Shown here is a 67-nucleotide RNA sequence from Micromonospora sicca, a member of the family "Transposase-2 RNA".
[Rfam]
RNA sequence: GAAGCGUCAACCCGGCAUCGCUUCGGCGAGCAAGACCGGGACCGUCCCACCGCAAGGCGGGACAUCC
Numbered sequence: 001g002a003a004g005c006g007u008c009a010a011c012c013c014g015g016c017a018u019c020g021c022u023u024c025g026g027c028g029a030g031c032a033a034g035a036c037c038g039g040g041a042c043c044g045u046c047c048c049a050c051c052g053c054a055a056g057g058c059g060g061g062a063c064a065u066c067c
Stems, first nucleotide, its partner, number of pairs: 011040005018029004044063005050057002
The family has 151 seed sequences and 214 matches in Rfam 15.1.